[Rfam]
RNA sequence: AAAAAAGUUUUAUAGGGUUCCGCAGCUUGAAAUUAUUAGCUGGUCUGGUCCAAGAUAAAACGCACAGUUAAGCUGUGUUCACGGAAGGACAAAAGCCUGGGAGAU
Numbered sequence: 001a002a003a004a005a006a007g008u009u010u011u012a013u014a015g016g017g018u019u020c021c022g023c024a025g026c027u028u029g030a031a032a033u034u035a036u037u038a039g040c041u042g043g044u045c046u047g048g049u050c051c052a053a054g055a056u057a058a059a060a061c062g063c064a065c066a067g068u069u070a071a072g073c074u075g076u077g078u079u080c081a082c083g084g085a086a087g088g089a090c091a092a093a094a095g096c097c098u099g100g101g102a103g104a105u
Base pairs, nucleotide, nucleotide: 007061008060009059010058011057012056015051016050020048021047022045023042024041025040026039027038062078063077064076065075066074067073068072080100082103086098087097088096
Dot-bracket structure: ......((((((..((...((((((((..........)))))..).)).))....))))))(((((((...))))))).(.[...(((.......))).)..]..
The record is a 105-nucleotide RNA from Clostridium aciditolerans, which matches "Guanidine-I riboswitch aptamer" in Rfam. The pairing is the family consensus, mapped onto this sequence. A search with the family's covariance model found it, with a score of 90 bits.